Rfam assigns this 83-nucleotide sequence from Cucumis melo to the family "small nucleolar RNA snoR117". A reference for the family is Chen and Wu (2009), "Mining small RNA sequencing data: a new approach to identify small nucleolar RNAs in Arabidopsis", Nucleic Acids Res. The family's RNA type in Rfam is C/D-box small nucleolar RNA.

RNA sequence: GGCCGAUGAUGUAGAAAAUUUGUCCGUACCAUCUGAGAUGCAUUUCGAUGGAGUACACAAUCAAUCUUUACGUUCUGAGGCCU
Numbered sequence: 001g002g003c004c005g006a007u008g009a010u011g012u013a014g015a016a017a018a019u020u021u022g023u024c025c026g027u028a029c030c031a032u033c034u035g036a037g038a039u040g041c042a043u044u045u046c047g048a049u050g051g052a053g054u055a056c057a058c059a060a061u062c063a064a065u066c067u068u069u070a071c072g073u074u075c076u077g078a079g080g081c082c083u
Base pairs, nucleotide, nucleotide: 001082002081003080004079